[Rfam]
RNA sequence: GCCGAGCUUGGUAAUGCGAGUUUGUAACCUGAGUGGGGGCUUUAAGGUGAUAGAAUGCGAGUUCGGGGCUUUGCUGAGUUGGAUUUCGGGUGGUUUAACUCUGGCUUGCCCGUUCUGAGUUGAGAGUUGUGCCAAGGGGCUUGAGUAUAAACUCCGAGUCUCGUGGUUCCUAAAAUGAAGGGUACUGCGUGAGGCUGGUUGGUUUCACAGAGCAGUGAAGACCAUUGUCUCUUGACAGUGGAAGGAAAACAUUCUUGAUCCACUCCAAUCUAGAGGUGCUCAUGGGUUGGGCCAGACCGGGCGUAAAAUUUUG
Numbered sequence: 001g002c003c004g005a006g007c008u009u010g011g012u013a014a015u016g017c018g019a020g021u022u023u024g025u026a027a028c029c030u031g032a033g034u035g036g037g038g039g040c041u042u043u044a045a046g047g048u049g050a051u052a053g054a055a056u057g058c059g060a061g062u063u064c065g066g067g068g069c070u071u072u073g074c075u076g077a078g079u080u081g082g083a084u085u086u087c088g089g090g091u092g093g094u095u096u097a098a099c100u101c102u103g104g105c106u107u108g109c110c111c112g113u114u115c116u117g118a119g120u121u122g123a124g125a126g127u128u129g130u131g132c133c134a135a136g137g138g139g140c141u142u143g144a145g146u147a148u149a150a151a152c153u154c155c156g157a158g159u160c161u162c163g164u165g166g167u168u169c170c171u172a173a174a175a176u177g178a179a180g181g182g183u184a185c186u187g188c189g190u191g192a193g194g195c196u197g198g199u200u201g202g203u204u205u206c207a208c209a210g211a212g213c214a215g216u217g218a219a220g221a222c223c224a225u226u227g228u229c230u231c232u233u234g235a236c237a238g239u240g241g242a243a244g245g246a247a248a249a250c251a252u253u254c255u256u257g258a259u260c261c262a263c264u265c266c267a268a269u270c271u272a273g274a275g276g277u278g279c280u281c282a283u284g285g286g287u288u289g290g291g292c293c294a295g296a297c298c299g300g301g302c303g304u305a306a307a308a309u310u311u312u313g
Base pairs, nucleotide, nucleotide: 001040002039003038004023005022006021007020008019009018010017028037029036030035043313044312045311046310047309048308051305052304053302056299057298061292062291063290064289065288066287071286072285075282076281077280078279079278081271082270083269084268085267088264089263091262092261093260096258101257103255104254107251108250110245111244113243114242115241116240117239119236120235121234122233123232124231125230126229129169131167132166133165134164136162137161138160139159140158141157142156143155144153145152146151176227177226178225180223181222186219188217189216190215195210196209197208

The family of this 313-nucleotide sequence from Gossypium mustelinum is "Plant signal recognition particle RNA". The organism belongs to Gossypium, within Eukaryota.